gut-2 RNA: a 48-nucleotide sequence.

RNA sequence: CUCCUCAUUCUAAAUGGUGAAUGAGAAGGGCCGAACGGGGUCACUAUC
Numbered sequence: 001c002u003c004c005u006c007a008u009u010c011u012a013a014a015u016g017g018u019g020a021a022u023g024a025g026a027a028g029g030g031c032c033g034a035a036c037g038g039g040g041u042c043a044c045u046a047u048c
Stems, first nucleotide, its partner, number of pairs: 004025007029042004
Rfam's curators put it in the seed alignment. Pairs were carried over by alignment from the consensus structure, which is taken from published work.